[Rfam]
RNA sequence: GACUACUUGCUCCCUACAACUUAAUUUGAUGAAGUGUUGUAUGGAGC
Numbered sequence: 001g002a003c004u005a006c007u008u009g010c011u012c013c014c015u016a017c018a019a020c021u022u023a024a025u026u027u028g029a030u031g032a033a034g035u036g037u038u039g040u041a042u043g044g045a046g047c
Stems, first nucleotide, its partner, number of pairs: 010046004016040003